Source information
A member of the RNA family "epsC RNA" from Paenibacillus sp. HGF7, 112 nucleotides long. Pairs were carried over by alignment from the consensus structure, which is taken from published work. NCBI's taxonomy places the organism under Bacteria, Bacillati, Bacilli, Paenibacillaceae, Paenibacillus.
RNA sequence: AGGUCAUGCCUACCGCACCUUUAUCACCGUAGGCACUCGGUCAUGCCGUGGGCGCUAGUCGCCUUAGACAUUCAUUGUCAAAGGUGUGAUGUGAGGGGGGGUUAAAUGCCCU
Numbered sequence: 001a002g003g004u005c006a007u008g009c010c011u012a013c014c015g016c017a018c019c020u021u022u023a024u025c026a027c028c029g030u031a032g033g034c035a036c037u038c039g040g041u042c043a044u045g046c047c048g049u050g051g052g053c054g055c056u057a058g059u060c061g062c063c064u065u066a067g068a069c070a071u072u073c074a075u076u077g078u079c080a081a082a083g084g085u086g087u088g089a090u091g092u093g094a095g096g097g098g099g100g101g102u103u104a105a106a107u108g109c110c111c112u
Stems, first nucleotide, its partner, number of pairs: 001020004007035007036095004040090008050064005067079004098112005
It scores 99 bits against the family's covariance model. By type it is a cis-regulatory element. The family has 30 seed sequences and 450 matches in Rfam 15.1.